Shown here is a 71-nucleotide RNA from Leishmania braziliensis, a member of the family "Trypanosomatid snoRNA TB11Cs2H1".
[Rfam]
RNA sequence: GGUGCGCUUACUGUAGUGCGCGUGCCGCAAGACCCCACAGGCACCGUGCAUGAAACUGGAGCGCUAGAUUG
Numbered sequence: 001g002g003u004g005c006g007c008u009u010a011c012u013g014u015a016g017u018g019c020g021c022g023u024g025c026c027g028c029a030a031g032a033c034c035c036c037a038c039a040g041g042c043a044c045c046g047u048g049c050a051u052g053a054a055a056c057u058g059g060a061g062c063g064c065u066a067g068a069u070u071g
Stems, first nucleotide, its partner, number of pairs: 004064006016051007023043004
Dot-bracket structure: ...((((((......(((((((((((.............)))).))))))).......)))))).......
The organism belongs to Leishmania braziliensis, within Eukaryota. The sequence is in the family's curated seed alignment. The literature on the family includes a 2005 paper in RNA by Liang et al., "A genome-wide analysis of C/D and H/ACA-like small nucleolar RNAs in Trypanosoma brucei reveals a trypanosome-specific pattern of rRNA modification".